[Rfam]
RNA sequence: GGUCAUGAGUGCCAGCAUCAAGCCCCGGCUUGCUGGCCGGCAACCCUCCAGCUCGCGGUGGGGUGCCCCGGGUGAGGACCAGGCAGGUGCCAACCGGCACCGGCAAGCGCGGGCC
Numbered sequence: 001g002g003u004c005a006u007g008a009g010u011g012c013c014a015g016c017a018u019c020a021a022g023c024c025c026c027g028g029c030u031u032g033c034u035g036g037c038c039g040g041c042a043a044c045c046c047u048c049c050a051g052c053u054c055g056c057g058g059u060g061g062g063g064u065g066c067c068c069c070g071g072g073u074g075a076g077g078a079c080c081a082g083g084c085a086g087g088u089g090c091c092a093a094c095c096g097g098c099a100c101c102g103g104c105a106a107g108c109g110c111g112g113g114c115c
Base pairs, nucleotide, nucleotide: 001080002079003078004077009038011037012036013035014034015033016032021030022029039067040066041065044063045062046061048058049057083104084103086101087100088099089098090097091096
This 115-nucleotide sequence from Citricoccus muralis belongs to the Rfam family "SAM (S-adenosyl methionine) riboswitch aptamer". Its family is annotated with regulation of gene expression and S-adenosylmethionine metabolic process in the Gene Ontology. The family is grouped with related families in Rfam's "SAM clan". The base pairs follow the family's consensus structure, which is taken from published work. The source organism's lineage runs through Bacteria, Bacillati, Micrococcales, Micrococcaceae and Citricoccus.